[Rfam]
RNA: Selenocysteine insertion sequence 1
Organism: Pteropus alecto
RNA sequence: AUUUCAUUUAUGACGGUGUUUCCUCUAAACCUUCAUGGAGGAAUGCCUGAUGUCCAGGAAAAU
Numbered sequence: 001a002u003u004u005c006a007u008u009u010a011u012g013a014c015g016g017u018g019u020u021u022c023c024u025c026u027a028a029a030c031c032u033u034c035a036u037g038g039a040g041g042a043a044u045g046c047c048u049g050a051u052g053u054c055c056a057g058g059a060a061a062a063u
Base pairs, nucleotide, nucleotide: 001063002062003061004060015047016046017045018044019043020042021041022040024038030037